[Rfam]
RNA sequence: CCAGGCUGAGGUAGUAGUUUGUACAGUUUGAGGGUCUAUGAUACCACCCGGUACAGGAGAUAACUGUACAGGCCACUGCCUUGCCAGG
Numbered sequence: 001c002c003a004g005g006c007u008g009a010g011g012u013a014g015u016a017g018u019u020u021g022u023a024c025a026g027u028u029u030g031a032g033g034g035u036c037u038a039u040g041a042u043a044c045c046a047c048c049c050g051g052u053a054c055a056g057g058a059g060a061u062a063a064c065u066g067u068a069c070a071g072g073c074c075a076c077u078g079c080c081u082u083g084c085c086a087g088g
Stems, first nucleotide, its partner, number of pairs: 001088002004085003008082008017073011032049004052059001